[Rfam]
RNA: small nucleolar RNA snoR135
RNA sequence: UGGGCAGGGAUAGUGUGUAUCGACGUAGUGCAAAGACGAGUGCACUCUGUUCGAAAGAGUUCCCUGCAAAAUUGAUAUUAAAAGGCGAAGAUGGGCAGUUGUGCUUCAAUCCACCGUUGAAUCUUUCAACAAUCAUCUUCCCCACAUUU
Numbered sequence: 001u002g003g004g005c006a007g008g009g010a011u012a013g014u015g016u017g018u019a020u021c022g023a024c025g026u027a028g029u030g031c032a033a034a035g036a037c038g039a040g041u042g043c044a045c046u047c048u049g050u051u052c053g054a055a056a057g058a059g060u061u062c063c064c065u066g067c068a069a070a071a072u073u074g075a076u077a078u079u080a081a082a083a084g085g086c087g088a089a090g091a092u093g094g095g096c097a098g099u100u101g102u103g104c105u106u107c108a109a110u111c112c113a114c115c116g117u118u119g120a121a122u123c124u125u126u127c128a129a130c131a132a133u134c135a136u137c138u139u140c141c142c143c144a145c146a147u148u149u
Stems, first nucleotide, its partner, number of pairs: 004067007015045006084143002087140008098130004